The family of this 117-nucleotide RNA sequence from Arabis nemorensis is "Small nucleolar RNA SNORA11". The organism belongs to Arabis, within Eukaryota. U107 (SNORA11) is a member of the H/ACA class of snoRNAs that guide the sites of modification of uridines to pseudouridines. This snoRNA was identified by RT-PCR from blood cells and its expression confirmed by Northern blot analysis. There is no predicted target for this guide snRNA. The match comes from Rfam's covariance-model search (37 bits). It is annotated as an H/ACA-box small nucleolar RNA.
RNA sequence: UUGGUGUUUUGUGAACAGUGUCACACCAAAUAUGGUGUGACACUGUUCACAAAACACCAAAAAAAAAAUUUGGUGUAAAAUUUGCAGUUCCAUUGGAGAUGAAACUACACCAAAUUU
Numbered sequence: 001u002u003g004g005u006g007u008u009u010u011g012u013g014a015a016c017a018g019u020g021u022c023a024c025a026c027c028a029a030a031u032a033u034g035g036u037g038u039g040a041c042a043c044u045g046u047u048c049a050c051a052a053a054a055c056a057c058c059a060a061a062a063a064a065a066a067a068a069u070u071u072g073g074u075g076u077a078a079a080a081u082u083u084g085c086a087g088u089u090c091c092a093u094u095g096g097a098g099a100u101g102a103a104a105c106u107a108c109a110c111c112a113a114a115u116u117u
Stems, first nucleotide, its partner, number of pairs: 002059007013048009022037003079116003087105003091101004